The family of this 263-nucleotide RNA from a Thermoleophilia bacterium is "Bacterial large signal recognition particle RNA". About the family: The signal recognition particle (SRP) is a universally conserved ribonucleoprotein involved in the co-translational targeting of proteins to membranes. The source organism's lineage runs through Bacteria, Bacillati, Actinomycetota and Thermoleophilia.
RNA sequence: UCGCGCUAGGUGGGGAGUUAGCGGUUCCCUGAACCCGACAUCCGCUCCAGCGGGACCGAACGCCGCCCGAGGGCGGCUUCAACGGGAUCAGGCUUCGCGCACGUGGCGUCGAUGGUCGGGUUCCGCGCACUGGGAGCAUCCGAACCGCGUCAGGUCCGGAAGGAAGCAGCGCUAAGGAUUCCCUCUCAGGUGCCGCGGUCUCGCCUGACCGGAGCCGGCGACGUGAACGCCCCCCGCUGAGGUCAUUCGAAGACGGAGCGCGU
Numbered sequence: 001u002c003g004c005g006c007u008a009g010g011u012g013g014g015g016a017g018u019u020a021g022c023g024g025u026u027c028c029c030u031g032a033a034c035c036c037g038a039c040a041u042c043c044g045c046u047c048c049a050g051c052g053g054g055a056c057c058g059a060a061c062g063c064c065g066c067c068c069g070a071g072g073g074c075g076g077c078u079u080c081a082a083c084g085g086g087a088u089c090a091g092g093c094u095u096c097g098c099g100c101a102c103g104u105g106g107c108g109u110c111g112a113u114g115g116u117c118g119g120g121u122u123c124c125g126c127g128c129a130c131u132g133g134g135a136g137c138a139u140c141c142g143a144a145c146c147g148c149g150u151c152a153g154g155u156c157c158g159g160a161a162g163g164a165a166g167c168a169g170c171g172c173u174a175a176g177g178a179u180u181c182c183c184u185c186u187c188a189g190g191u192g193c194c195g196c197g198g199u200c201u202c203g204c205c206u207g208a209c210c211g212g213a214g215c216c217g218g219c220g221a222c223g224u225g226a227a228c229g230c231c232c233c234c235c236g237c238u239g240a241g242g243u244c245a246u247u248c249g250a251a252g253a254c255g256g257a258g259c260g261c262g263u
Base pairs, nucleotide, nucleotide: 002262003261004260005259006258007257009057010056011055012030013029014028015027016026017025018024019023034054035053036052037051063256064255065254067252071248072247073246075244077242078241079240080239081238083236084235085234086233091228095226096225097224098223099222103219104218105216106215107214113211114210115209116208117207118206119205120204121203123198124197125196126195127194128190131188132187133186134185135184136181138179139178140177141176147172148171149170150169155164156163157162
The literature on the family includes a 2002 paper in Nucleic Acids Res by Regalia et al., "Prediction of signal recognition particle RNA genes". A search with the family's covariance model found it, with a score of 168 bits.